RNA: Plastid-psbA-4 3UTR RNA
Organism: Echites umbellatus
RNA sequence: AUAAAGGAGCAAUAAUAACCUUCUUGUUCUAGCAAGAGGGUGGUAUUGCUCCUUUAU
Numbered sequence: 001a002u003a004a005a006g007g008a009g010c011a012a013u014a015a016u017a018a019c020c021u022u023c024u025u026g027u028u029c030u031a032g033c034a035a036g037a038g039g040g041u042g043g044u045a046u047u048g049c050u051c052c053u054u055u056a057u
Base pairs, nucleotide, nucleotide: 003055004054005053006052007051008050009049010048011047012046013045014044018041019040021038022037023036024035025034026033